[Rfam]
RNA sequence: AAAUAAGACCCAUAACAUUAAAACUGCCACAGAUGCGCAGACAUAAUACCAGUGGUUUUCCUGCGCACUUAUGCGUCUGGCAAGGGAGGAAGUUUUAGUCCGUAGGGUACUGACAUGACUCAGUACAGUCGGGCAUGCUACAACGUACAGGCGUUGUGGUAUCCAUGAGGAUUUUCUCCUUCCCUCGUAA
Numbered sequence: 001a002a003a004u005a006a007g008a009c010c011c012a013u014a015a016c017a018u019u020a021a022a023a024c025u026g027c028c029a030c031a032g033a034u035g036c037g038c039a040g041a042c043a044u045a046a047u048a049c050c051a052g053u054g055g056u057u058u059u060c061c062u063g064c065g066c067a068c069u070u071a072u073g074c075g076u077c078u079g080g081c082a083a084g085g086g087a088g089g090a091a092g093u094u095u096u097a098g099u100c101c102g103u104a105g106g107g108u109a110c111u112g113a114c115a116u117g118a119c120u121c122a123g124u125a126c127a128g129u130c131g132g133g134c135a136u137g138c139u140a141c142a143a144c145g146u147a148c149a150g151g152c153g154u155u156g157u158g159g160u161a162u163c164c165a166u167g168a169g170g171a172u173u174u175u176c177u178c179c180u181u182c183c184c185u186c187g188u189a190a
Stems, first nucleotide, its partner, number of pairs: 034067006072189004084184004088179003098134005107126006136161006